[Rfam]
Shown here is a 152-nucleotide sequence, a member of the family "RT-3 RNA". The base pairs follow the family's consensus structure, which is taken from published work. The sequence is in the family's curated seed alignment.
Nucleotides: 152
Base pairs, nucleotide, nucleotide: 003047004046005045006044007043011041012040013039014038017034019033020032021031022030060090061089062088063087064086070081071080072079073078106152109149110148112145113144115142116141125132126131
Number, partner (000 for none) and nucleotide at each position: 001000c002000a003047u004046c005045g006044c007043a008000c009000c010000c011041a012040u013039g014038c015000a016000g017034g018000u019033g020032g021031c022030a023000a024000c025000g026000u027000g028000a029000u030022u031021g032020c033019c034017c035000a036000u037000c038014g039013u040012a041011u042000a043007u044006g045005c046004g047003a048000g049000a050000a051000c052000c053000c054000c055000g056000a057000g058000c059000c060090u061089c062088g063087g064086c065000a066000a067000c068000a069000g070081c071080a072079c073078a074000a075000u076000a077000u078073u079072g080071u081070g082000g083000a084000a085000a086064g087063c088062c089061g090060a091000a092000a093000c094000a095000u096000a097000a098000a099000u100000a101000g102000g103000a104000g105000u106152c107000c108000u109149g110148a111000a112145g113144g114000c115142u116141u117000a118000u119000g120000a121000a122000u123000g124000a125132u126131u127000u128000u129000a130000a131126g132125a133000c134000a135000u136000u137000g138000a139000a140000c141116a142115a143000u144113u145112u146000g147000g148110u149109c150000c151000c152106g